[Rfam]
c-di-GMP-I riboswitch aptamer: an 85-nucleotide sequence from Bacillus yapensis.
Taxonomically the source falls in Bacillus (Bacteria, Bacillati, Bacillota, Caryophanales).
Gene Ontology term of the family: cyclic-di-GMP binding.
RNA sequence: CUUCGAUAAUAGCAAACCCAUUGAAAGAUGGGGACGCAAAGCUGCGGGCCUAAUGAAAUCAUUCUAUGGCAGCCGGGUUGCCGAA
Number, nucleotide and partner (000 for none) at each position: 001c000002u000003u000004c000005g000006a000007u000008a000009a000010u000011a000012g037013c036014a000015a000016a000017c032018c031019c030020a029021u028022u027023g000024a000025a000026a000027g022028a021029u020030g019031g018032g017033g000034a000035c000036g013037c012038a000039a000040a079041g078042c077043u076044g000045c075046g074047g073048g070049c069050c068051u000052a000053a000054u000055g064056a063057a062058a000059u000060c000061a000062u057063u056064c055065u000066a000067u000068g050069g049070c048071a000072g000073c047074c046075g045076g043077g042078u041079u040080g000081c000082c000083g000084a000085a000